The record is a 160-nucleotide sequence from Blautia sp. CAG:37, which matches "Clostridiales-1 RNA" in Rfam.
RNA sequence: UGAAAGCCCCGGACAGCAGCUAUGAAUGAGCCAUGCUUGCAUGAGCGAAUUCAUAGAUAUUGGGCGGGCAAGACGACAUGAGUAAGUAGGGCGAUAGCCCGGAUUACGAAUGUUGUCAGCAGUUACGGGAGCGACGCAGGCGCGGAGUAACUGGCUUUCA
Numbered sequence: 001u002g003a004a005a006g007c008c009c010c011g012g013a014c015a016g017c018a019g020c021u022a023u024g025a026a027u028g029a030g031c032c033a034u035g036c037u038u039g040c041a042u043g044a045g046c047g048a049a050u051u052c053a054u055a056g057a058u059a060u061u062g063g064g065c066g067g068g069c070a071a072g073a074c075g076a077c078a079u080g081a082g083u084a085a086g087u088a089g090g091g092c093g094a095u096a097g098c099c100c101g102g103a104u105u106a107c108g109a110a111u112g113u114u115g116u117c118a119g120c121a122g123u124u125a126c127g128g129g130a131g132c133g134a135c136g137c138a139g140g141c142g143c144g145g146a147g148u149a150a151c152u153g154g155c156u157u158u159c160a
Stems, first nucleotide, its partner, number of pairs: 001160007008068004015061002018058001020056008030046001032043004072117008082107004089100004120153007131143003
Notes
It scores 115 bits against the family's covariance model.